[Rfam]
RNA sequence: AGCCUGAUAGUCCUUCACCGGUAGCUACCAGCAUUAACCGUUGAUUCUAUGAUUGGGCCAAGAAAGAGUCAUUGUCGUUUCACAAUUGAUCAGAUCCUGUGACUAGUGUUCAGUUGGUCAACAGAGCUGGUUGUUGUGAUUACAUAU
Numbered sequence: 001a002g003c004c005u006g007a008u009a010g011u012c013c014u015u016c017a018c019c020g021g022u023a024g025c026u027a028c029c030a031g032c033a034u035u036a037a038c039c040g041u042u043g044a045u046u047c048u049a050u051g052a053u054u055g056g057g058c059c060a061a062g063a064a065a066g067a068g069u070c071a072u073u074g075u076c077g078u079u080u081c082a083c084a085a086u087u088g089a090u091c092a093g094a095u096c097c098u099g100u101g102a103c104u105a106g107u108g109u110u111c112a113g114u115u116g117g118u119c120a121a122c123a124g125a126g127c128u129g130g131u132u133g134u135u136g137u138g139a140u141u142a143c144a145u146a147u
Stems, first nucleotide, its partner, number of pairs: 002058007009050001015044003020039003024032003080139005092128002097124003100120005
A member of the RNA family "Small nucleolar RNA snoR2/U65" from Brachypodium distachyon, 147 nucleotides long. Lineage of the source: Eukaryota > Streptophyta > Spermatophyta > Pooideae > Brachypodium. By type it is an H/ACA-box small nucleolar RNA. A search with the family's covariance model found it, with a score of 85 bits. The family has 11 seed sequences and 908 matches in Rfam 15.1.